[Rfam]
RNA sequence: CUCUUAUCAAGAGAGGCGGAGGGACUGACCCGAUGAUACCUCAGCAACCAGCAAUUAUUAUUGCACGGUGCUAAUUUCAGAAGAAUACGAUUGUAUUCUAAAGAUGAGAA
Numbered sequence: 001c002u003c004u005u006a007u008c009a010a011g012a013g014a015g016g017c018g019g020a021g022g023g024a025c026u027g028a029c030c031c032g033a034u035g036a037u038a039c040c041u042c043a044g045c046a047a048c049c050a051g052c053a054a055u056u057a058u059u060a061u062u063g064c065a066c067g068g069u070g071c072u073a074a075u076u077u078c079a080g081a082a083g084a085a086u087a088c089g090a091u092u093g094u095a096u097u098c099u100a101a102a103g104a105u106g107a108g109a110a
Base pairs, nucleotide, nucleotide: 002109003108004107005106006105007104008103013042014041015040016039021031022030023029025080026079027078028077043072044071045070046069048068049067051064052063053062054061076102082099083098084097085096086095087094
The family of this 110-nucleotide RNA from Bacillus sp. FJAT-50079 is "SAM riboswitch aptamer (S box leader)". The match comes from Rfam's covariance-model search (83 bits). Rfam links the family to the GO term regulation of gene expression. The base pairs follow the family's consensus structure, which is taken from published work.